[Rfam]
RNA sequence: GAGUUCCUACUCAACUUCUCAUUUUCUGGUUCCUUCUACCAAGUUAAGCAUACUCAUUAGAAGGAACCAGAAAAUGAGAAGUUAAAUCUGAAGUC
Numbered sequence: 001g002a003g004u005u006c007c008u009a010c011u012c013a014a015c016u017u018c019u020c021a022u023u024u025u026c027u028g029g030u031u032c033c034u035u036c037u038a039c040c041a042a043g044u045u046a047a048g049c050a051u052a053c054u055c056a057u058u059a060g061a062a063g064g065a066a067c068c069a070g071a072a073a074a075u076g077a078g079a080a081g082u083u084a085a086a087u088c089u090g091a092a093g094u095c
Base pairs, nucleotide, nucleotide: 001095002094004092005091006090013083014082015081016080017079018078019077020076021075022074023073024072025071026070027069028068029067030066031065032064033063034062035061036060037059038058042054043053044052
This 95-nucleotide RNA from Homo sapiens belongs to the Rfam family "mir-3914 microRNA precursor family". The source organism's lineage runs through Eukaryota, Bilateria, Haplorrhini, Simiiformes and Homo. Pairs were carried over by alignment from the consensus structure, which was predicted with RNAalifold.